[Rfam]
RNA sequence: GUUCGCCUGCUUCAUGAUGGUCAAGGCCACCAUGACUGAGCGACUCUUUAAUCUGGUCGUGCCGCUGGCUCACGAGGCCACCGCCAUGCGCACCGCAGAUACCGCCGGCAGCAGCCGGGGCCGGUCUGGCGCAGUUUCCCCGCUGAUCGGCGACAGCCUUCGGCGGGGUGACGUAGAUAGCACGAAUGGACG
Numbered sequence: 001g002u003u004c005g006c007c008u009g010c011u012u013c014a015u016g017a018u019g020g021u022c023a024a025g026g027c028c029a030c031c032a033u034g035a036c037u038g039a040g041c042g043a044c045u046c047u048u049u050a051a052u053c054u055g056g057u058c059g060u061g062c063c064g065c066u067g068g069c070u071c072a073c074g075a076g077g078c079c080a081c082c083g084c085c086a087u088g089c090g091c092a093c094c095g096c097a098g099a100u101a102c103c104g105c106c107g108g109c110a111g112c113a114g115c116c117g118g119g120g121c122c123g124g125u126c127u128g129g130c131g132c133a134g135u136u137u138c139c140c141c142g143c144u145g146a147u148c149g150g151c152g153a154c155a156g157c158c159u160u161c162g163g164c165g166g167g168g169u170g171a172c173g174u175a176g177a178u179a180g181c182a183c184g185a186a187u188g189g190a191c192g
Stems, first nucleotide, its partner, number of pairs: 004042003012035005018029004057185006063083002066080005087133005096128004102124002105118005135171002138168009149158003

This 192-nucleotide RNA belongs to the Rfam family "RT-15 RNA". The family's consensus secondary structure is taken from published work. It is annotated as a small RNA. It is one of the family's seed sequences.